[Rfam]
RNA sequence: CCCCUAGGGGGAAGUGAAGACCCCGUGGAGCUUUACUGCAGCCUGUCGCUGGGUUGUGGUCCUGGAUGUACAGCGUAGGUAGGAGGCGUCGAAACUCACGCGCCAGCGUGGGUGGAGCCGUCCCUGGGACACUACCCUUCCAGAACUACGACCCUUACUCCGCAAGGAGGACACCGAUAGGUAGGCAGUUUGCCUGGGGCGGGACGCCCUUGAAAAGAUAUCAAGGGUGCGCAAUGGUCAACUCCGGUGGGUCGGAAACCCACUUAAGAGUGCAAGAGCAAAAGUUGGCCUGACGUGAUCCGGCACAGUAGCGGAUCGCGGAACGAAAGUUGGUUCUAGCGAACCUUCAUGUCCUGCUUGAUACGGGCUUAAGACGACAGAAAAGUUACCCCGGGGAUAAUAGAGUCGUUGCCGGCAAGAGCACAUAUCGACCCGGCAGCUUGCUACCUCGAUGUCGGUUCUUUCCAUCCUGGCUGUGCAGCAGCAGCCAAGGGUGAGGUUGUUCGCCUAUUAAAGGAGAUCGUGAGCUGGGUUUAGACCGUCGUGAGACAGGUCGGUUACUAUCUGCUAGGGGUGUC
Number, nucleotide and partner (000 for none) at each position: 001c574002c573003c572004c571005u570006a569007g568008g000009g000010g566011g565012a564013a000014g561015u560016g000017a000018a000019g000020a000021c000022c395023c394024c393025g392026u000027g391028g390029a387030g386031c385032u384033u383034u000035a189036c188037u187038g186039c000040a000041g000042c181043c180044u179045g178046u177047c176048g175049c000050u000051g154052g153053g152054u151055u150056g149057u148058g147059g146060u145061c000062c143063u142064g141065g140066a139067u000068g137069u000070a000071c000072a000073g000074c000075g000076u000077a000078g136079g135080u134081a133082g132083g000084a000085g119086g118087c117088g000089u000090c000091g000092a000093a000094a000095c000096u000097c110098a109099c108100g107101c106102g000103c000104c000105a000106g101107c100108g099109u098110g097111g000112g000113u000114g000115g000116a000117g087118c086119c085120g000121u000122c000123c000124c000125u000126g000127g000128g000129a000130c000131a000132c082133u081134a080135c079136c078137c068138u000139u066140c065141c064142a063143g062144a000145a060146c059147u058148a057149c056150g055151a054152c053153c052154c051155u000156u000157a000158c169159u168160c167161c166162g000163c000164a000165a000166g161167g160168a159169g158170g000171a000172c000173a000174c000175c048176g047177a046178u045179a044180g043181g042182u000183a000184g000185g000186c038187a037188g036189u035190u000191u000192g205193c203194c202195u201196g000197g000198g000199g000200c000201g195202g194203g193204a000205c192206g228207c227208c226209c225210u224211u223212g000213a000214a000215a000216a000217g000218a000219u000220a000221u000222c000223a211224a210225g209226g208227g207228u206229g000230c000231g334232c333233a000234a000235u000236g000237g289238u288239c287240a286241a285242c284243u269244c268245c000246g264247g263248u262249g261250g260251g259252u000253c000254g000255g000256a000257a000258a000259c251260c250261c249262a248263c247264u246265u000266a000267a000268g244269a243270g279271u278272g000273c000274a000275a000276g000277a000278g271279c270280a000281a000282a000283a000284g242285u241286u240287g239288g238289c237290c000291u000292g000293a000294c320295g319296u318297g317298a316299u315300c314301c313302g312303g000304c000305a000306c000307a000308g000309u000310a000311g000312c302313g301314g300315a299316u298317c297318g296319c295320g294321g000322a331323a000324c329325g000326a000327a000328a000329g324330u000331u322332g000333g232334u231335u000336c000337u000338a000339g000340c000341g000342a000343a000344c000345c373346u372347u371348c000349a369350u000351g368352u000353c367354c366355u365356g364357c000358u000359u000360g000361a000362u000363a000364c356365g355366g354367g353368c351369u349370u000371a347372a346373g345374a000375c000376g000377a000378c000379a000380g000381a000382a000383a033384a032385g031386u030387u029388a000389c000390c028391c027392c025393g024394g023395g022396g000397a000398u000399a000400a000401u000402a000403g000404a445405g444406u443407c000408g442409u439410u438411g437412c436413c435414g434415g433416c000417a000418a000419g429420a428421g000422c000423a000424c000425a000426u000427a000428u420429c419430g000431a000432c000433c415434c414435g413436g412437c411438a410439g409440c000441u000442u408443g406444c405445u404446a000447c000448c000449u000450c000451g000452a000453u000454g000455u000456c531457g529458g528459u527460u526461c523462u520463u519464u518465c517466c516467a000468u000469c494470c493471u000472g000473g488474c487475u486476g485477u484478g000479c000480a000481g000482c000483a000484g477485c476486a475487g474488c473489c000490a000491a000492g000493g470494g469495u000496g000497a509498g508499g507500u506501u000502g000503u000504u000505c000506g500507c499508c498509u497510a000511u000512u000513a000514a000515a000516g466517g465518a464519g463520a462521u000522c000523g461524u000525g000526a460527g459528c458529u457530g000531g456532g000533u000534u000535u000536a000537g555538a554539c553540c552541g550542u549543c548544g000545u000546g000547a000548g543549a542550c541551a000552g540553g539554u538555c537556g000557g000558u000559u000560a015561c014562u000563a000564u012565c011566u010567g000568c007569u006570a005571g004572g003573g002574g001575u000576g000577u000578c000
The family of this 578-nucleotide part of an RNA from Methanohalobium evestigatum is "Archaeal large subunit ribosomal RNA". It is one of the family's seed sequences. Pairs were carried over by alignment from the consensus structure, which is taken from published work.